[Rfam]
RNA: SymR antitoxin
Organism: Citrobacter freundii
RNA sequence: AGUCAUGGUGGCUAUUCUCCGAUAAUAGUUACUGCGAUUAGCGAUGCGAGGGUGUUGGUAGCACCUUCGUGUCGCGCU
Number, nucleotide and partner (000 for none) at each position: 001a039002g038003u037004c036005a000006u034007g033008g032009u000010g000011g029012c028013u027014a026015u025016u024017c000018u000019c000020c000021g000022a000023u000024a016025a015026u014027a013028g012029u011030u000031a000032c008033u007034g006035c000036g004037a003038u002039u001040a000041g075042c074043g073044a000045u071046g070047c069048g068049a067050g066051g065052g064053u063054g062055u061056u000057g000058g000059u000060a000061g055062c054063a053064c052065c051066u050067u049068c048069g047070u046071g045072u000073c043074g042075c041076g000077c000078u000